[Rfam]
RNA sequence: ACCCCAUGAUAUUAAGCCGGCAGAUGCUCGAAUCUCCACGCGCAUUUGUGACUAUGAUUGGGAACAGUAAUGCUCCUGAUGUGUGUAUGUUGUUGCAACUCCUCAAUACUGCUUCAACAAAGAAUUUUCAGUCGACA
Numbered sequence: 001a002c003c004c005c006a007u008g009a010u011a012u013u014a015a016g017c018c019g020g021c022a023g024a025u026g027c028u029c030g031a032a033u034c035u036c037c038a039c040g041c042g043c044a045u046u047u048g049u050g051a052c053u054a055u056g057a058u059u060g061g062g063a064a065c066a067g068u069a070a071u072g073c074u075c076c077u078g079a080u081g082u083g084u085g086u087a088u089g090u091u092g093u094u095g096c097a098a099c100u101c102c103u104c105a106a107u108a109c110u111g112c113u114u115c116a117a118c119a120a121a122g123a124a125u126u127u128u129c130a131g132u133c134g135a136c137a
Stems, first nucleotide, its partner, number of pairs: 020049008076131004088119005097114002100111001